Shown here is a 129-nucleotide sequence from Vitis vinifera, a member of the family "U11 spliceosomal RNA". Clan: U1 clan. NCBI's taxonomy places the organism under Eukaryota, Viridiplantae, Euphyllophyta, Magnoliopsida, Vitis. The sequence is in the family's curated seed alignment.
RNA sequence: UAAAAGGGUCGGUUGGCUAAAUAUGCCACUCUCACCCUCGUCUGGUGAGUGCUGUAUGGCUAUCAAGACAUAUGGCCGACAUAAUUUAUGGAAACCUUAUAGGGUUGGCUCCUCUGGCCGACCCUUCAU
Numbered sequence: 001u002a003a004a005a006g007g008g009u010c011g012g013u014u015g016g017c018u019a020a021a022u023a024u025g026c027c028a029c030u031c032u033c034a035c036c037c038u039c040g041u042c043u044g045g046u047g048a049g050u051g052c053u054g055u056a057u058g059g060c061u062a063u064c065a066a067g068a069c070a071u072a073u074g075g076c077c078g079a080c081a082u083a084a085u086u087u088a089u090g091g092a093a094a095c096c097u098u099a100u101a102g103g104g105u106u107g108g109c110u111c112c113u114c115u116g117g118c119c120g121a122c123c124c125u126u127c128a129u
Stems, first nucleotide, its partner, number of pairs: 008080005014028004029051001031049006052075007099126001103123008